[Rfam]
RNA sequence: UUUCGUGGAUGAUGAGAACAUCAAUUAUACAGUUAUCCCUGUCUGAUUUACUCUGUGCUGAAUGCAUACCUCUCAAGGCUGACACUGAA
Numbered sequence: 001u002u003u004c005g006u007g008g009a010u011g012a013u014g015a016g017a018a019c020a021u022c023a024a025u026u027a028u029a030c031a032g033u034u035a036u037c038c039c040u041g042u043c044u045g046a047u048u049u050a051c052u053c054u055g056u057g058c059u060g061a062a063u064g065c066a067u068a069c070c071u072c073u074c075a076a077g078g079c080u081g082a083c084a085c086u087g088a089a
Stems, first nucleotide, its partner, number of pairs: 001089003005085003
Small nucleolar RNA R38: an 89-nucleotide RNA from Ipomoea nil.
The match comes from Rfam's covariance-model search (49 bits).
Rfam describes the family as follows. snoR38 is a C/D box small nucleolar RNA conserved across yeast, human, Arabidopsis and rice. It is encoded in the intron of elongation factor-1 gamma in both pombe and cerevisiae. snoR38 guides the methylation of 2'-O-ribose sites in 28S rRNA.
It is annotated as a C/D-box small nucleolar RNA.
Lineage of the source: Eukaryota > Embryophyta > Tracheophyta > Gunneridae > Ipomoea.
Rfam links the family to the GO terms nucleolus and RNA processing.